[Rfam]
RNA sequence: AUCGCACGUUUGUGGCCAUAGUAGAAGUGUUUUAUGCCCCAGCCUGUCAGAUUCCAACAAAUCUGUGAAUUCUGCU
Numbered sequence: 001a002u003c004g005c006a007c008g009u010u011u012g013u014g015g016c017c018a019u020a021g022u023a024g025a026a027g028u029g030u031u032u033u034a035u036g037c038c039c040c041a042g043c044c045u046g047u048c049a050g051a052u053u054c055c056a057a058c059a060a061a062u063c064u065g066u067g068a069a070u071u072c073u074g075c076u
Base pairs, nucleotide, nucleotide: 014044015043016042020076021075022074023073024072025071026070027040029038048065049064050063051062052061053060
RNA: Mammalian CPEB3 ribozyme